[Rfam]
RNA sequence: CGCGUAUUUCGCCCAGGCGGAGCUCGACCGCCCACUGAAGCGAUGACGGCGUUUAUCGACGAACACCGCGAGGAGUAUGGGGUCGAGCCGAUCUGCCGGGUUCUGCCGAUCGCCCCA
Number, nucleotide and partner (000 for none) at each position: 001c000002g000003c000004g000005u000006a000007u000008u000009u000010c000011g000012c000013c000014c000015a000016g032017g031018c030019g029020g028021a000022g000023c000024u000025c000026g000027a000028c020029c019030g018031c017032c016033c000034a000035c000036u000037g000038a000039a000040g000041c000042g000043a000044u000045g000046a000047c000048g000049g000050c000051g000052u000053u000054u000055a000056u000057c000058g000059a000060c000061g000062a000063a000064c000065a000066c000067c000068g000069c000070g000071a000072g000073g000074a000075g000076u000077a000078u117079g116080g115081g114082g113083u000084c000085g000086a000087g000088c000089c112090g111091a000092u109093c108094u000095g106096c105097c000098g103099g000100g000101u000102u000103c098104u000105g096106c095107c000108g093109a092110u000111c090112g089113c082114c081115c080116c079117a078
The family of this 117-nucleotide sequence from Croceicoccus pelagius is "ALIL pseudoknot". Taxonomically the source falls in Croceicoccus (Bacteria, Pseudomonadati, Pseudomonadota, Alphaproteobacteria).